Rfam assigns this 105-nucleotide RNA sequence from Martelella alba to the family "TPP riboswitch aptamer (THI element)". Rfam links the family to the GO term thiamine pyrophosphate binding. For this family Rfam cites "Metabolite-binding RNA domains are present in the genes of eukaryotes" (Sudarsan et al., RNA, 2003). A search with the family's covariance model found it, with a score of 68 bits. Lineage of the source: Bacteria > Pseudomonadota > Hyphomicrobiales > Aurantimonadaceae > Martelella. About the family: Vitamin B(1) in its active form thiamin pyrophosphate (TPP) is an essential coenzyme that is synthesised by coupling of pyrimidine and thiazole moieties in bacteria. Rfam 15.1 lists 16,130 matches to the family in 8,693 species.

RNA sequence: GGGCGAUCCGAGGGGUGUGUCCUUUGAGGCGCUGAGAUGGCCAUGAGCCGAACCCUUGAACCUGAUCCGGGUCAUGCCGGCGUAGGAACGGAGUUUCAUCUUGGC
Numbered sequence: 001g002g003g004c005g006a007u008c009c010g011a012g013g014g015g016u017g018u019g020u021c022c023u024u025u026g027a028g029g030c031g032c033u034g035a036g037a038u039g040g041c042c043a044u045g046a047g048c049c050g051a052a053c054c055c056u057u058g059a060a061c062c063u064g065a066u067c068c069g070g071g072u073c074a075u076g077c078c079g080g081c082g083u084a085g086g087a088a089c090g091g092a093g094u095u096u097c098a099u100c101u102u103g104g105c
Base pairs, nucleotide, nucleotide: 007092008091009090010089011056012055013054014053016050017032018031019030020029021028039049040048041047061086062085063084064083067080068079069078070077